[Rfam]
RNA: dfrA-dnaX RNA
RNA sequence: AAAACUUUUUGUAAAGACUAUUAAUUUCACCAUAAUUACCACAAGGAAUAAUCAAAAAGGAAUUAUGGUAUAAU
Numbered sequence: 001a002a003a004a005c006u007u008u009u010u011g012u013a014a015a016g017a018c019u020a021u022u023a024a025u026u027u028c029a030c031c032a033u034a035a036u037u038a039c040c041a042c043a044a045g046g047a048a049u050a051a052u053c054a055a056a057a058a059g060g061a062a063u064u065a066u067g068g069u070a071u072a073a074u
Stems, first nucleotide, its partner, number of pairs: 029069008